[Rfam]
RNA sequence: GGACACAACUCUGGAGAGUUCCGUUUAAUCGGACGCCGAAGGUGUAAAGGUCUGGAUUUCCAGGCUCUAAUCUCUCAGGCAAAAGGACAGGGGGCCGACA
Numbered sequence: 001g002g003a004c005a006c007a008a009c010u011c012u013g014g015a016g017a018g019u020u021c022c023g024u025u026u027a028a029u030c031g032g033a034c035g036c037c038g039a040a041g042g043u044g045u046a047a048a049g050g051u052c053u054g055g056a057u058u059u060c061c062a063g064g065c066u067c068u069a070a071u072c073u074c075u076c077a078g079g080c081a082a083a084a085g086g087a088c089a090g091g092g093g094g095c096c097g098a099c100a
Stems, first nucleotide, its partner, number of pairs: 009092005020033004035080003038076002042074001044072001048068002
RNA: Glycine riboswitch aptamer